[Rfam]
RNA sequence: GUUGAAGCUCCAUCUACAAAUGGGUAAGACUUUGGUCUUAGUGUGUACAAGUUAAUGAAAUAAAUAAAGGAGCAAUAACAAUCUUCUUGAUAUAACAAGAAAUUGGCUAUUGCUCCUUUAU
Numbered sequence: 001g002u003u004g005a006a007g008c009u010c011c012a013u014c015u016a017c018a019a020a021u022g023g024g025u026a027a028g029a030c031u032u033u034g035g036u037c038u039u040a041g042u043g044u045g046u047a048c049a050a051g052u053u054a055a056u057g058a059a060a061u062a063a064a065u066a067a068a069g070g071a072g073c074a075a076u077a078a079c080a081a082u083c084u085u086c087u088u089g090a091u092a093u094a095a096c097a098a099g100a101a102a103u104u105g106g107c108u109a110u111u112g113c114u115c116c117u118u119u120a121u
Base pairs, nucleotide, nucleotide: 009024010023011022012021013020066119067118068117069116070115071114072113073112074111075110076109077108081104084101085100086099087098088097
Description: Shown here is a 121-nucleotide RNA sequence from Passiflora foetida, a member of the family "Plastid-psbA-1 3UTR RNA". Plastid psbA-1 is a non-coding RNA (ncRNA) present in plastids. The organism belongs to Passiflora, within Eukaryota. Clan: Plastid-psbA 3UTR RNA clan. The sequence is in the family's curated seed alignment.